[Rfam]
RNA sequence: UCAUCACCACCAUCAUAUAGCAUAACCUUUCAGGUUCGUGCUGGAAGGUCUAUGGUUACCUUCCAGUGGCAUAUCGAACCUAAUCAGAUACCCCCGGAAGGCAACUUUCGGGGGUUUUCGUUU
Numbered sequence: 001u002c003a004u005c006a007c008c009a010c011c012a013u014c015a016u017a018u019a020g021c022a023u024a025a026c027c028u029u030u031c032a033g034g035u036u037c038g039u040g041c042u043g044g045a046a047g048g049u050c051u052a053u054g055g056u057u058a059c060c061u062u063c064c065a066g067u068g069g070c071a072u073a074u075c076g077a078a079c080c081u082a083a084u085c086a087g088a089u090a091c092c093c094c095c096g097g098a099a100g101g102c103a104a105c106u107u108u109c110g111g112g113g114g115u116u117u118u119c120g121u122u123u
Stems, first nucleotide, its partner, number of pairs: 008040003012035003020031001041066008085120001087118002090115011